[Rfam]
The family of this 86-nucleotide RNA sequence from Hydrogenobaculum sp. HO is "Fluoride riboswitch aptamer (crcB RNA motif)". Its family is annotated with response to fluoride and positive regulation of gene expression in the Gene Ontology.
RNA sequence: GUUAGCCAAGGAGAUGGCGUUCUCCUUGAUGCUCAUAAAAGCAUCAAAACCGCCUCACAUAUAAGGCUAAUAACGCCUACCUACUC
Dot-bracket structure: .........[[[[..((((((]]]]..........................((((........))))....)))))).........
Numbered sequence: 001g002u003u004a005g006c007c008a009a010g011g012a013g014a015u016g017g018c019g020u021u022c023u024c025c026u027u028g029a030u031g032c033u034c035a036u037a038a039a040a041g042c043a044u045c046a047a048a049a050c051c052g053c054c055u056c057a058c059a060u061a062u063a064a065g066g067c068u069a070a071u072a073a074c075g076c077c078u079a080c081c082u083a084c085u086c
Stems, first nucleotide, its partner, number of pairs: 010025004016077006052067004
Notes
A search with the family's covariance model found it, with a score of 53 bits. The family's consensus secondary structure is taken from published work.